[Rfam]
mir-395 microRNA precursor family: a 104-nucleotide sequence from Gossypium mustelinum.
Rfam's curators write: mir-395 was identified in both Arabidopsis thaliana and Oryza sativa computationally and was later experimentally verified. mir-395 is thought to target mRNAs coding for ATP sulphurylases. The mature sequence is excised from the 3' arm of the hairpin.
NCBI's taxonomy places the organism under Eukaryota, Viridiplantae, Embryophyta, Magnoliopsida, Gossypium.
Pairs were carried over by alignment from the consensus structure, which was predicted with PFOLD.
Nucleotides: 104
Stems, first nucleotide, its partner, number of pairs: 005100001007098003011094010022084001024081007032073004
Number, partner (000 for none) and nucleotide at each position: 001000g002000u003000g004000u005100u006000c007098c008097u009096u010000g011094g012093a013092g014091u015090u016089c017088c018087c019086c020085u021000g022084a023000c024081c025080a026079c027078u028077u029076c030075a031000u032073u033072g034071g035070g036000g037000c038000u039000a040000u041000u042000u043000u044000a045000a046000g047000a048000a049000c050000c051000u052000u053000a054000a055000a056000u057000g058000a059000g060000g061000a062000a063000a064000u065000u066000u067000u068000u069000c070035c071034c072033u073032a074000c075030u076029g077028a078027a079026g080025u081024g082000u083000u084022u085020g086019g087018g088017g089016g090015a091014a092013c093012u094011c095000u096009g097008g098007g099000a100005g101000a102000u103000a104000g